The family of this 218-nucleotide RNA from Streptosporangiaceae bacterium NEAU-GS5 is "Actinobacteria sRNA Ms_IGR-5".
RNA sequence: ACGCAGAAAGGAGGUGGUCCAAGCGAUGGUUGAUCAUUAUUGGGCUAGCGAGGUGGCUGUCCGCCGCUAGACGUGUGAUCCGGACCAGCUCCGGAUUGCGCCUACUGGCGAAAUCCAGACAGACACCGGAACCCCGGGCAGCCGGCGGUCUCACACGAGACCUUGGUCCAGUCGGCCCGCCUCCCGGAGAGGCGGAGCGAGCCCGGGGUUCUCCCUUU
Numbered sequence: 001a002c003g004c005a006g007a008a009a010g011g012a013g014g015u016g017g018u019c020c021a022a023g024c025g026a027u028g029g030u031u032g033a034u035c036a037u038u039a040u041u042g043g044g045c046u047a048g049c050g051a052g053g054u055g056g057c058u059g060u061c062c063g064c065c066g067c068u069a070g071a072c073g074u075g076u077g078a079u080c081c082g083g084a085c086c087a088g089c090u091c092c093g094g095a096u097u098g099c100g101c102c103u104a105c106u107g108g109c110g111a112a113a114u115c116c117a118g119a120c121a122g123a124c125a126c127c128g129g130a131a132c133c134c135c136g137g138g139c140a141g142c143c144g145g146c147g148g149u150c151u152c153a154c155a156c157g158a159g160a161c162c163u164u165g166g167u168c169c170a171g172u173c174g175g176c177c178c179g180c181c182u183c184c185c186g187g188a189g190a191g192g193c194g195g196a197g198c199g200a201g202c203c204c205g206g207g208g209u210u211c212u213c214c215c216u217u218u
Stems, first nucleotide, its partner, number of pairs: 013061006062110005068104001070102001072100002075096002128212012142187003
It is annotated as a small RNA. On this family, see Li et al., RNA 2013: "Identification of small RNAs in Mycobacterium smegmatis using heterologous Hfq".